[Rfam]
RNA sequence: UCGUUUUCAUCAACAGUGUUUGAUAAAGCAC
Number, nucleotide and partner (000 for none) at each position: 001u000002c000003g029004u028005u027006u026007u025008c000009a024010u023011c022012a021013a020014c018015a000016g000017u000018g014019u000020u013021u012022g011023a010024u009025a007026a006027a005028g004029c003030a000031c000
A member of the RNA family "Iron response element II" from Exophiala aquamarina, 31 nucleotides long.
A search with the family's covariance model found it, with a score of 32 bits.
Its family is annotated with response to iron ion in the Gene Ontology.